About this RNA
A member of the RNA family "mir-310 microRNA precursor family" from Scaptodrosophila lebanonensis, 76 nucleotides long. Lineage of the source: Eukaryota > Ecdysozoa > Brachycera > Ephydroidea > Scaptodrosophila. Its family is annotated with compound eye morphogenesis, head involution and response to nicotine in the Gene Ontology. It scores 68 bits against the family's covariance model.

[Rfam]
RNA sequence: ACAUUUUCAGGUCGUGAACUGUGUCAAAAUGAUAUUUUUCUAAAAACAUAUUGCACAUUUCCCGGCCUUCAAAUGU
Number, nucleotide and partner (000 for none) at each position: 001a076002c075003a074004u073005u072006u071007u000008c000009a000010g067011g066012u000013c064014g063015u000016g061017a060018a000019c000020u057021g056022u000023g054024u000025c053026a052027a051028a000029a049030u048031g047032a000033u000034a000035u000036u000037u000038u000039u000040c000041u000042a000043a000044a000045a000046a000047c031048a030049u029050a000051u027052u026053g025054c023055a000056c021057a020058u000059u000060u017061c016062c000063c014064g013065g000066c011067c010068u000069u000070c000071a006072a005073a004074u003075g002076u001

Pairs were carried over by alignment from the consensus structure, which was predicted with RNAalifold.